[Rfam]
RNA: Small nucleolar RNA U2-19
RNA sequence: GAUCAAGGAUGAAAAUAUCCAGAUCUAAGCAUCAGAGGCUUCCAGGCUACCUGAUACACGAUUUUUGUAGUUCUGAGA
Numbered sequence: 001g002a003u004c005a006a007g008g009a010u011g012a013a014a015a016u017a018u019c020c021a022g023a024u025c026u027a028a029g030c031a032u033c034a035g036a037g038g039c040u041u042c043c044a045g046g047c048u049a050c051c052u053g054a055u056a057c058a059c060g061a062u063u064u065u066u067g068u069a070g071u072u073c074u075g076a077g078a
Stems, first nucleotide, its partner, number of pairs: 029057001031055003037048004